Record summary: Shown here is an 80-nucleotide RNA from Actinoplanes campanulatus, a member of the family "c-di-GMP-I-GGC riboswitch aptamer". Lineage of the source: Bacteria > Bacillati > Actinomycetes > Micromonosporales > Actinoplanes.
RNA sequence: UACCGAACAGGCAAACCCGCUGCGAAGCGGGGACGCAAAGCCAGGGGCCUCCCAGGACGGAGGUAGCCCAGCCGCCGAAG
Dot-bracket structure: (.(.......((...((((((....))))))..[))...((..((((((((........))))).]))).))....)..)